A. fumigatus sRNA Afu_254: a 160-nucleotide sequence from Aspergillus brasiliensis. The family's RNA type in Rfam is small RNA. The match comes from Rfam's covariance-model search (67 bits). Lineage of the source: Eukaryota > Opisthokonta > Fungi > leotiomyceta > Aspergillus brasiliensis.
RNA sequence: AAAGACACUUUACUUUCCCUCAAAUACUCUCUUAGUAUAUAUACAUACUACUACCACCCAUCAAUCCAUCAUCAUGGCCCCCUGCGAGUGCAAGUGCUGCUCUGGCAGCUGCAACUCCUGCGCCUGCUCUGACUGCAAGGUAUGUACUCAUACCAUAGCA
Numbered sequence: 001a002a003a004g005a006c007a008c009u010u011u012a013c014u015u016u017c018c019c020u021c022a023a024a025u026a027c028u029c030u031c032u033u034a035g036u037a038u039a040u041a042u043a044c045a046u047a048c049u050a051c052u053a054c055c056a057c058c059c060a061u062c063a064a065u066c067c068a069u070c071a072u073c074a075u076g077g078c079c080c081c082c083u084g085c086g087a088g089u090g091c092a093a094g095u096g097c098u099g100c101u102c103u104g105g106c107a108g109c110u111g112c113a114a115c116u117c118c119u120g121c122g123c124c125u126g127c128u129c130u131g132a133c134u135g136c137a138a139g140g141u142a143u144g145u146a147c148u149c150a151u152a153c154c155a156u157a158g159c160a
Stems, first nucleotide, its partner, number of pairs: 083107003090100003111136003120127002